[Rfam]
RNA sequence: CGAGUAAGUUGGAUGAUCGCGGGCACAGCCAAGCUGUGAACGAGGAAAGUCCGAGCUCCAAAGGGCAGGGUGCUGGGUAAUACCCAGUGGAGGCGACUCCAAGGAAAGUGCAACAGAGAGAUACCGCCACUUUAAUAUAUAGCUAGAAAUAGUUAAUAUAUUUAAGGGGUAAGGGUGGAAAGGUGAGGUAAGAGCUCACCAGCAACUAGGUGACUAGUUGGCUAUGUAAACCCCAUCUGGAGCAAGAUCAAGUAGGGACUAAAAAGCGGCGGCCCGUCGUGUCUCGUGGUAGAUCGCUUGAGCCUGCUGGCAACAGUAGGCCUAGAUAGAUGAUCAUCUAUGACAGAACUCGGCUUAUAGACUUACUCGUUAU
Dot-bracket structure: ((((((((((((((((((.((..(((((.....)))))..))....[[[.[[[[[((((...[[[[.((((((((((.....)))))(((((....)))).)((...(((((...........(((((.(((.(((((((...............))))))).))).)))..)).......((((((.......)))))).((((((((....))))))).)..)))..)))))))))))))...((((.......((.......(((((.]]]])))))...))......))))......((((((((....))))))))..........)))))))..........]]]]]]]].).))))))))))....
Shown here is a 373-nucleotide RNA from Serpentinicella alkaliphila, a member of the family "Bacterial RNase P class A".
Lineage of the source: Bacteria > Bacillota > Peptostreptococcales > Natronincolaceae > Serpentinicella.
By type it is a ribozyme.
The match comes from Rfam's covariance-model search (304 bits).